Rfam assigns this 72-nucleotide RNA from Dinothrombium tinctorium to the family "mir-124 microRNA precursor family". The family's consensus secondary structure was predicted with PFOLD. Lineage of the source: Eukaryota > Chelicerata > Trombidiformes > Prostigmata > Dinothrombium.
RNA sequence: UACUCUCCGUGUUCACUGUUUGUCUUUAUGUCUCAUAUAAUAGCAUAAGGCACGCGGUGAAUGCCAAGAGUU
Numbered sequence: 001u002a003c004u005c006u007c008c009g010u011g012u013u014c015a016c017u018g019u020u021u022g023u024c025u026u027u028a029u030g031u032c033u034c035a036u037a038u039a040a041u042a043g044c045a046u047a048a049g050g051c052a053c054g055c056g057g058u059g060a061a062u063g064c065c066a067a068g069a070g071u072u
Stems, first nucleotide, its partner, number of pairs: 003070004009064008018055002024050008